[Rfam]
RNA sequence: UCCUUAUCAAGAGUCGGGGGAGGAACCUGGUCCGAUGAACCCGCGGCAACCAUUACUUGCCCAAAGUAAACGGUGCCAAUUCCAGCAGACUGUGAAGGUCUGAAAGAUGAGGA
Number, nucleotide and partner (000 for none) at each position: 001u113002c112003c111004u110005u109006a108007u107008c106009a000010a000011g000012a000013g044014u000015c043016g042017g041018g040019g000020g000021a000022g033023g032024a031025a000026c000027c085028u084029g083030g082031u024032c023033c022034g000035a000036u000037g000038a000039a000040c018041c017042c016043g015044c013045g077046g076047c075048a074049a000050c073051c072052a000053u069054u068055a067056c066057u000058u000059g000060c000061c000062c000063a000064a000065a000066g056067u055068a054069a053070a000071c000072g051073g050074u048075g047076c046077c045078a000079a000080u000081u105082c030083c029084a028085g027086c102087a101088g100089a099090c098091u097092g000093u000094g000095a000096a000097g091098g090099u089100c088101u087102g086103a000104a000105a081106g008107a007108u006109g005110a004111g003112g002113a001
The family of this 113-nucleotide RNA sequence from Novibacillus thermophilus is "SAM riboswitch aptamer (S box leader)". The SAM riboswitch is found upstream of a number of genes which code for proteins involved in methionine or cysteine biosynthesis in Gram-positive bacteria. The source organism's lineage runs through Bacteria, Bacillati, Bacilli, Thermoactinomycetaceae and Novibacillus. It scores 93 bits against the family's covariance model. Gene Ontology term of the family: regulation of gene expression.